Overview:
The family of this 78-nucleotide RNA sequence from Tetraodon nigroviridis is "mir-92 microRNA precursor family". Pairs were carried over by alignment from the consensus structure, which was predicted with PFOLD. The family is grouped with related families in Rfam's "mir-92 microRNA precursor clan". The family has 23 seed sequences and 1,347 matches in Rfam 15.1. This family represents the microRNA precursor mir-92. Human miR-92 has two predicted hairpin precursor sequences: mir-92-1 on chromosome 13 and mir-92-2 on chromosome X. miR-92 has also been cloned from mouse embryonic stem cells. The mature sequence is excised from the 3' arm of the hairpin. NCBI's taxonomy places the organism under Eukaryota, Deuterostomia, Actinopteri, Neopterygii, Tetraodon.
RNA sequence: UUUCCUGUACAGGUUGGGAGAGGUAGCAAUGCUCGGAGUUCAUGUGGUAUUGCACUUGUCCCGGCCUGUGGAGGAAGA
Numbered sequence: 001u002u003u004c005c006u007g008u009a010c011a012g013g014u015u016g017g018g019a020g021a022g023g024u025a026g027c028a029a030u031g032c033u034c035g036g037a038g039u040u041c042a043u044g045u046g047g048u049a050u051u052g053c054a055c056u057u058g059u060c061c062c063g064g065c066c067u068g069u070g071g072a073g074g075a076a077g078a
Stems, first nucleotide, its partner, number of pairs: 004074003009069006016062004022056003026053008